[Rfam]
The family of this 169-nucleotide RNA from Olsenella sp. KH1P3 is "Lysine riboswitch aptamer".
RNA sequence: CCCAACGAAAGAGGUGCGGAAGUGAUGAGCGCGGGCGAGCCGGCAGGCGCGGACCCCGCGGGAGGCUAAAUCCGCCGAACUCCUUGGCCCGGCAGGGCGAGGGGUGGGCCAGCGGGGAAGACCCGCCGGACUGUCUGUGGGGGCAUCCCACAGUUGCGCUUUCCCGACG
Numbered sequence: 001c002c003c004a005a006c007g008a009a010a011g012a013g014g015u016g017c018g019g020a021a022g023u024g025a026u027g028a029g030c031g032c033g034g035g036c037g038a039g040c041c042g043g044c045a046g047g048c049g050c051g052g053a054c055c056c057c058g059c060g061g062g063a064g065g066c067u068a069a070a071u072c073c074g075c076c077g078a079a080c081u082c083c084u085u086g087g088c089c090c091g092g093c094a095g096g097g098c099g100a101g102g103g104g105u106g107g108g109c110c111a112g113c114g115g116g117g118a119a120g121a122c123c124c125g126c127c128g129g130a131c132u133g134u135c136u137g138u139g140g141g142g143g144c145a146u147c148c149c150a151c152a153g154u155u156g157c158g159c160u161u162u163c164c165c166g167a168c169g
Stems, first nucleotide, its partner, number of pairs: 007163005016075005023068002030060001032058004079105005085100001087098004106132002109129002112126005135153006

The organism belongs to Olsenella, within Bacteria.